[Rfam]
RNA: sok antitoxin (CssrC)
RNA sequence: GGGUGCUUGAGGCUGUCUGGCCUUGAGCAUUACCAGGCCCCCAGACAGACGAAAGCCCCAGGAGAUAUUUCUAUCAACUGAGGCUAGCGAAUGAACAUAGACAAUUCAGAUGUUAGUCUCUUCUUUGCAGGGAGGCAAGAUAUGCUGACAAAAUAUG
Numbered sequence: 001g002g003g004u005g006c007u008u009g010a011g012g013c014u015g016u017c018u019g020g021c022c023u024u025g026a027g028c029a030u031u032a033c034c035a036g037g038c039c040c041c042c043a044g045a046c047a048g049a050c051g052a053a054a055g056c057c058c059c060a061g062g063a064g065a066u067a068u069u070u071c072u073a074u075c076a077a078c079u080g081a082g083g084c085u086a087g088c089g090a091a092u093g094a095a096c097a098u099a100g101a102c103a104a105u106u107c108a109g110a111u112g113u114u115a116g117u118c119u120c121u122u123c124u125u126u127g128c129a130g131g132g133a134g135g136c137a138a139g140a141u142a143u144g145c146u147g148a149c150a151a152a153a154u155a156u157g
Stems, first nucleotide, its partner, number of pairs: 001059003005056004011050001013048008060079002064075004080120005087113003092108004124148002128144002